[Rfam]
RNA sequence: CCUCUCAAAAAUGGUCGAAGCCAUGCCUAGCGCGAGGUAGCUGUCGGUGUAGAGCACUGAUUGAUAAGUUUGGGAGGAGACUCCCGACUUAUCUGUCAAACUCCGAAGCCGACAGUACCGUAGACCGCCGGAGUUAGGGUGCAGGGGGUAAGCUCCUGCUCCGAAAGGGGAACAACCCAGACUGAGGUUAAGGCCCUCAAAUGUCGGCUAAGUGUUAAGCUUAAAGGGAGUCUUUGCCCUUAGACAGCGGGAAGGUAGGCUUAGAAGCAGCCAUCCUUUAAACAGCGCGUAACAGCGAACCCGUUGAGGGUGAAGGCCCCGAAAAUGGACGGGACUAAGCCGACUGCCGAUACCUCAGAGUAGGUGAAGUAAAGUAGCCUAACCUUGUAGAGAGGCAUCCGGCGAGGGUAGAAAUACGGUCGUGAGGUCGUAUGGACCUCGUUGGAAAGAUAAU
Number, nucleotide and partner (000 for none) at each position: 001c395002c394003u393004c392005u391006c390007a000008a000009a000010a000011a024012u023013g022014g021015u020016c000017g000018a000019a000020g015021c014022c013023a012024u011025g000026c133027c131028u130029a000030g128031c127032g126033c000034g000035a000036g119037g118038u117039a000040g116041c115042u114043g113044u112045c111046g110047g109048u000049g000050u000051a000052g104053a102054g101055c000056a000057c000058u000059g097060a096061u095062u000063g093064a092065u091066a090067a089068g088069u000070u000071u086072g085073g084074g083075a082076g081077g000078a000079g000080a000081c076082u075083c074084c073085c072086g071087a000088c068089u067090u066091a065092u064093c063094u000095g061096u060097c059098a000099a000100a000101c054102u053103c000104c052105g000106a000107a000108g000109c047110c046111g045112a044113c043114a042115g041116u040117a038118c037119c036120g000121u000122a000123g000124a000125c000126c032127g031128c030129c000130g028131g027132a000133g026134u000135u000136a000137g162138g161139g160140u000141g159142c158143a157144g156145g155146g154147g000148g000149u000150a000151a000152g000153c000154u146155c145156c144157u143158g142159c141160u139161c138162c137163g000164a000165a000166a000167g178168g177169g176170g000171a000172a000173c000174a000175a000176c169177c168178c167179a000180g000181a000182c358183u357184g356185a355186g354187g353188u352189u000190a000191a000192g348193g347194c346195c000196c000197u000198c000199a000200a000201a345202u000203g344204u343205c342206g341207g340208c339209u000210a000211a000212g000213u000214g000215u000216u000217a000218a000219g000220c000221u000222u000223a000224a000225a000226g320227g319228g318229a000230g317231u316232c315233u314234u313235u312236g311237c310238c309239c308240u000241u000242a000243g000244a000245c000246a000247g304248c303249g302250g301251g300252a000253a277254g276255g275256u000257a000258g272259g271260c270261u000262u000263a000264g000265a000266a000267g000268c000269a000270g260271c259272c258273a000274u000275c255276c254277u253278u282279u000280a000281a000282a278283c000284a000285g000286c000287g296288c295289g000290u000291a000292a000293c000294a000295g288296c287297g000298a000299a000300c251301c250302c249303g248304u247305u000306g000307a000308g239309g238310g237311u236312g235313a234314a233315g232316g231317c230318c228319c227320c226321g000322a000323a000324a000325a000326u000327g000328g000329a000330c000331g000332g000333g000334a000335c000336u000337a000338a000339g208340c207341c206342g205343a204344c203345u201346g194347c193348c192349g000350a000351u000352a188353c187354c186355u185356c184357a183358g182359a385360g384361u381362a380363g379364g378365u377366g000367a000368a000369g000370u000371a000372a000373a000374g000375u000376a000377g365378c364379c363380u362381a361382a000383c000384c360385u359386u000387g000388u000389a000390g006391a005392g004393a003394g002395g001396c449397a000398u446399c445400c444401g443402g442403c441404g440405a439406g438407g437408g000409u000410a000411g000412a000413a000414a433415u432416a431417c430418g429419g428420u427421c426422g000423u000424g000425a000426g421427g420428u419429c418430g417431u416432a415433u414434g000435g000436a000437c407438c406439u405440c404441g403442u402443u401444g400445g399446a398447a000448a000449g396450a000451u000452a000453a000454u000